[Rfam]
RNA sequence: CGAAACGUGUUGACCAGGACCAGUACACGUUGUCACGAUCCAGCAGCGAGCCGAGAUGGUGCAAGUCGGCGGACAAGGCAAUGUCAAACCCACCUGGGAGCGUCAGCGAGGAGCUGACCGGAAACCUCACCGUUAACGGAGGUGCGAUCCAGCCAGAGCUGAUCGCCUAAGGGGAGCCGCAGAGACCAGGCGGUUCAAAAAAGGUGGUACCACGGGUUUAUAUCUCGUCCUUGUG
Numbered sequence: 001c002g003a004a005a006c007g008u009g010u011u012g013a014c015c016a017g018g019a020c021c022a023g024u025a026c027a028c029g030u031u032g033u034c035a036c037g038a039u040c041c042a043g044c045a046g047c048g049a050g051c052c053g054a055g056a057u058g059g060u061g062c063a064a065g066u067c068g069g070c071g072g073a074c075a076a077g078g079c080a081a082u083g084u085c086a087a088a089c090c091c092a093c094c095u096g097g098g099a100g101c102g103u104c105a106g107c108g109a110g111g112a113g114c115u116g117a118c119c120g121g122a123a124a125c126c127u128c129a130c131c132g133u134u135a136a137c138g139g140a141g142g143u144g145c146g147a148u149c150c151a152g153c154c155a156g157a158g159c160u161g162a163u164c165g166c167c168u169a170a171g172g173g174g175a176g177c178c179g180c181a182g183a184g185a186c187c188a189g190g191c192g193g194u195u196c197a198a199a200a201a202a203g204g205u206g207g208u209a210c211c212a213c214g215g216g217u218u219u220a221u222a223u224c225u226c227g228u229c230c231u232u233g234u235g
Stems, first nucleotide, its partner, number of pairs: 007101002015096004027084005039073003050070005103117005119132003174196007201232004212228005
RNA: T-box leader
Organism: Ktedonosporobacter rubrisoli